RNA sequence: UCGCGAAGACAGGGGAGCGCCGCAGGGGCGCUGAGAGUGCGGACGGCCGCAGACCCUCGAACCUGAUCCGGCUAGCACCGGCGUAGGGAGUCGGGAAUCUCCUCGG
Number, nucleotide and partner (000 for none) at each position: 001u000002c000003g000004c000005g000006a000007a000008g092009a091010c090011a057012g056013g055014g054015g000016a000017g031018c030019g029020c028021c027022g000023c000024a000025g000026g000027g021028g020029c019030g018031c017032u000033g000034a000035g000036a000037g000038u051039g050040c049041g048042g047043a000044c000045g000046g000047c042048c041049g040050c039051a038052g000053a000054c014055c013056c012057u011058c000059g000060a000061a000062c087063c086064u085065g084066a000067u000068c081069c080070g079071g078072c000073u000074a000075g000076c000077a000078c071079c070080g069081g068082c000083g000084u065085a064086g063087g062088g000089a000090g010091u009092c008093g000094g000095g000096a000097a000098u000099c000100u000101c000102c000103u000104c000105g000106g000